[Rfam]
Eukaryotic large subunit ribosomal RNA: a 588-nucleotide part of an RNA from Trichinella pseudospiralis. The organism belongs to Trichinella, within Eukaryota.
RNA sequence: GAAGACCCUGUUGAGCUUGACUCUAGUCUGACUCUGUGAAGAGACAUGAAAGGUGUAGCAUAGGUGGGAGGCUGCAGCCGGGCACUGCUUGCGCGGUGUCUCUGUGGUCGCCAAUGAAAUACCACUACUUUGAUCGUUUCUUUACUUAUUCGGUAAAGCGAAAAAAUUGUGGCCAAUUUUGCGGUCUCGCCGCUGUUGGUCAUUGUUUUAAUGUUGGAUUGAAGCUUCGUUUGUAGCCGUCGUUUUGUGUCGCCGUUUGACGUGCAUUCGCAGUGGUGUGGGUUUCUUGGCUCGCGCGGCGCUAGUGUCGUCAACAACGGACGACCGGCGAUUGGUUUGAAGUGAUUCGCUCCGGAAACAGUGUCAGACGGGGAGUUUGACUGGGGCGGUACAUCUGUUAAACGAUAACGCAGGUGUCCUAAGGUAAGCUCAGCGAGGACAGAAACCUCGCCUAGAGUAAACGGGCACAAGCUUACUUGAUUUUGAUUUCCAGUACGAAUAAAAACCGCGAAAGCGUGGCCUAUCGAUCCUUUUGAUUGUGUAGAUUUCACGCAAGAGGUGUCAGAAAAGUUACCACAGGGAUAACUG
Numbered sequence: 001g002a003a004g005a006c007c008c009u010g011u012u013g014a015g016c017u018u019g020a021c022u023c024u025a026g027u028c029u030g031a032c033u034c035u036g037u038g039a040a041g042a043g044a045c046a047u048g049a050a051a052g053g054u055g056u057a058g059c060a061u062a063g064g065u066g067g068g069a070g071g072c073u074g075c076a077g078c079c080g081g082g083c084a085c086u087g088c089u090u091g092c093g094c095g096g097u098g099u100c101u102c103u104g105u106g107g108u109c110g111c112c113a114a115u116g117a118a119a120u121a122c123c124a125c126u127a128c129u130u131u132g133a134u135c136g137u138u139u140c141u142u143u144a145c146u147u148a149u150u151c152g153g154u155a156a157a158g159c160g161a162a163a164a165a166a167u168u169g170u171g172g173c174c175a176a177u178u179u180u181g182c183g184g185u186c187u188c189g190c191c192g193c194u195g196u197u198g199g200u201c202a203u204u205g206u207u208u209u210a211a212u213g214u215u216g217g218a219u220u221g222a223a224g225c226u227u228c229g230u231u232u233g234u235a236g237c238c239g240u241c242g243u244u245u246u247g248u249g250u251c252g253c254c255g256u257u258u259g260a261c262g263u264g265c266a267u268u269c270g271c272a273g274u275g276g277u278g279u280g281g282g283u284u285u286c287u288u289g290g291c292u293c294g295c296g297c298g299g300c301g302c303u304a305g306u307g308u309c310g311u312c313a314a315c316a317a318c319g320g321a322c323g324a325c326c327g328g329c330g331a332u333u334g335g336u337u338u339g340a341a342g343u344g345a346u347u348c349g350c351u352c353c354g355g356a357a358a359c360a361g362u363g364u365c366a367g368a369c370g371g372g373g374a375g376u377u378u379g380a381c382u383g384g385g386g387c388g389g390u391a392c393a394u395c396u397g398u399u400a401a402a403c404g405a406u407a408a409c410g411c412a413g414g415u416g417u418c419c420u421a422a423g424g425u426a427a428g429c430u431c432a433g434c435g436a437g438g439a440c441a442g443a444a445a446c447c448u449c450g451c452c453u454a455g456a457g458u459a460a461a462c463g464g465g466c467a468c469a470a471g472c473u474u475a476c477u478u479g480a481u482u483u484u485g486a487u488u489u490c491c492a493g494u495a496c497g498a499a500u501a502a503a504a505a506c507c508g509c510g511a512a513a514g515c516g517u518g519g520c521c522u523a524u525c526g527a528u529c530c531u532u533u534u535g536a537u538u539g540u541g542u543a544g545a546u547u548u549c550a551c552g553c554a555a556g557a558g559g560u561g562u563c564a565g566a567a568a569a570g571u572u573a574c575c576a577c578a579g580g581g582a583u584a585a586c587u588g
Stems, first nucleotide, its partner, number of pairs: 007580004012576002014572005020376004027368006036145010046134002049131004063126005070109008149356005159349004165207003169203009224343005379392001380390003393415006418519002424476006430456002433451006457466002481505004486500004507516003530558006538552004